[Rfam]
RNA sequence: GCAAUCUCAAGAUCGCCCGCGAAGAUCGCACCGUGUUUCUCGGUCUGCUCGGGAUUUCGUGGCUCUGGUUCGUGGGUGCGACGUUUCUUUCGUUAUUCUUCGGUUUCGCGAAGGACGUGCUC
Numbered sequence: 001g002c003a004a005u006c007u008c009a010a011g012a013u014c015g016c017c018c019g020c021g022a023a024g025a026u027c028g029c030a031c032c033g034u035g036u037u038u039c040u041c042g043g044u045c046u047g048c049u050c051g052g053g054a055u056u057u058c059g060u061g062g063c064u065c066u067g068g069u070u071c072g073u074g075g076g077u078g079c080g081a082c083g084u085u086u087c088u089u090u091c092g093u094u095a096u097u098c099u100u101c102g103g104u105u106u107c108g109c110g111a112a113g114g115a116c117g118u119g120c121u122c
Base pairs, nucleotide, nucleotide: 010049011048015045017043018042019041021039022038023037024036025034026033051121052120054118055117057115058114060112065103067099068098072094075091076090078088080087081086

This 122-nucleotide RNA from Paraburkholderia eburnea belongs to the Rfam family "Burkholderia RNA 11". From the family's description: Co-purified with Hfq, expression confirmed by Northern blot. Predicted target marZ. Overlaps coding sequence. It is annotated as a small RNA. For this family Rfam cites "Experimental identification of small non-coding regulatory RNAs in the opportunistic human pathogen Burkholderia cenocepacia J2315" (Ramos et al., Genomics, 2013).